Shown here is a 102-nucleotide RNA sequence from Clostridium paraputrificum, a member of the family "Purine riboswitch aptamer". The base pairs follow the family's consensus structure, which is taken from published work. Riboswitches are metabolite binding domains within certain messenger RNAs that serve as precision sensors for their corresponding targets. It scores 80 bits against the family's covariance model.
RNA sequence: UUCGCAUAUAAUAAAUAUGCUCGUAUAUCAUCGGAAAUAGGGUCCGAAAGUUUCUACCUGCUAACCGUAAAUUAGCAGACUACGGGGUGAGAUUGGUUAAGA
Number, nucleotide and partner (000 for none) at each position: 001u000002u000003c000004g000005c000006a000007u000008a000009u000010a000011a000012u000013a000014a000015a000016u000017a000018u000019g000020c086021u085022c084023g083024u082025a081026u000027a000028u000029c000030a000031u047032c046033g045034g044035a043036a000037a000038u000039a000040g000041g000042g000043u035044c034045c033046g032047a031048a000049a000050g000051u000052u000053u000054c000055u000056a000057c000058c078059u077060g076061c075062u074063a073064a072065c000066c000067g000068u000069a000070a000071a000072u064073u063074a062075g061076c060077a059078g058079a000080c000081u025082a024083c023084g022085g021086g020087g000088u000089g000090a000091g000092a000093u000094u000095g000096g000097u000098u000099a000100a000101g000102a000
About this RNA:
Gene Ontology term of the family: purine nucleobase biosynthetic process.